[Rfam]
RNA: Selenocysteine insertion sequence 1
Organism: Trichechus manatus
RNA sequence: CCUACUUUAAUGACGUGGAUGGAGUAAACCUUUCAGGACCUUCAUUUGCUGAUGUGGUAUG
Numbered sequence: 001c002c003u004a005c006u007u008u009a010a011u012g013a014c015g016u017g018g019a020u021g022g023a024g025u026a027a028a029c030c031u032u033u034c035a036g037g038a039c040c041u042u043c044a045u046u047u048g049c050u051g052a053u054g055u056g057g058u059a060u061g
Stems, first nucleotide, its partner, number of pairs: 001061001003059003015049010030037002